Rfam assigns this 88-nucleotide RNA from Oryza glumipatula to the family "MIR1861 microRNA precursor family". It scores 89 bits against the family's covariance model. Gene Ontology terms of the family: RISC complex and miRNA-mediated post-transcriptional gene silencing.
RNA sequence: AUAUUCUUAGGCCCGAUCUUGUGGCAAGAACUAGGUAGUUUGUUAACUCGCUACACGGUUCUUGUCAUAAGAUCGAGUCUAUGAAUAU
Numbered sequence: 001a002u003a004u005u006c007u008u009a010g011g012c013c014c015g016a017u018c019u020u021g022u023g024g025c026a027a028g029a030a031c032u033a034g035g036u037a038g039u040u041u042g043u044u045a046a047c048u049c050g051c052u053a054c055a056c057g058g059u060u061c062u063u064g065u066c067a068u069a070a071g072a073u074c075g076a077g078u079c080u081a082u083g084a085a086u087a088u
Base pairs, nucleotide, nucleotide: 001088002087003086004085005084006083008081009080010079011078012077014075015074016073017072018071019070020069021068023066024065025064026063027062028061029060030059031058032057035054036053